[Rfam]
RNA: Alpha operon ribosome binding site
RNA sequence: AAUCGUCAUCUGUCGAGUAUCCUACCGGGCUUUUCACAGAUGACCUUUAACUUGAGGAGUGCAUAGUGGCCCGUAUCGCUGGCAUUAACAUUCCUGAU
Number, nucleotide and partner (000 for none) at each position: 001a000002a000003u000004c000005g044006u043007c042008a041009u040010c039011u038012g037013u036014c000015g000016a000017g000018u000019a000020u000021c082022c081023u000024a000025c000026c073027g072028g071029g070030c000031u000032u000033u000034u097035c096036a013037c012038a011039g010040a009041u008042g007043a006044c005045c000046u000047u000048u000049a000050a000051c000052u000053u000054g000055a000056g000057g000058a000059g000060u000061g000062c000063a000064u000065a000066g000067u000068g000069g000070c029071c028072c027073g026074u000075a000076u000077c000078g000079c000080u000081g022082g021083c000084a000085u000086u000087a000088a000089c000090a000091u000092u000093c000094c000095u000096g035097a034098u000